[Rfam]
RNA: Bacteroidales small SRP
RNA sequence: UUUGCACCGGCGAGUCCUGUACGAUCAGCUCCCGCCAAAUCCCCCAGGGCCGGAAGGCAGCAAGGGUAGGCCGGUUGUAGCGAUGCGAUACGGGGUGCUCGCCACCUU
Numbered sequence: 001u002u003u004g005c006a007c008c009g010g011c012g013a014g015u016c017c018u019g020u021a022c023g024a025u026c027a028g029c030u031c032c033c034g035c036c037a038a039a040u041c042c043c044c045c046a047g048g049g050c051c052g053g054a055a056g057g058c059a060g061c062a063a064g065g066g067u068a069g070g071c072c073g074g075u076u077g078u079a080g081c082g083a084u085g086c087g088a089u090a091c092g093g094g095g096u097g098c099u100c101g102c103c104a105c106c107u108u
Base pairs, nucleotide, nucleotide: 009103010102011101012100013099014098015097017093018092019091020090021089022087023086024084025083
Dot-bracket structure: ........(((((((.(((((((((.........................................................)).)).)))))...))))))).....